[Rfam]
RNA sequence: GGAUCAAUGAUGACAUCAAGUCUCUGAGGACAAUGAUCAACUCAUACCAAUGGCAAUCUGAAUUUCAGAUAGGAGAUCC
Number, nucleotide and partner (000 for none) at each position: 001g079002g078003a077004u076005c075006a000007a000008u000009g000010a000011u000012g000013a000014c000015a000016u000017c000018a000019a000020g000021u000022c000023u000024c000025u000026g000027a000028g000029g000030a000031c000032a000033a000034u000035g000036a000037u000038c000039a000040a000041c000042u000043c000044a000045u000046a000047c000048c000049a000050a000051u000052g000053g000054c000055a000056a000057u000058c000059u000060g000061a000062a000063u000064u000065u000066c000067a000068g000069a000070u000071a000072g000073g000074a000075g005076a004077u003078c002079c001
RNA: Small nucleolar RNA SNORD109A
Organism: Peromyscus maniculatus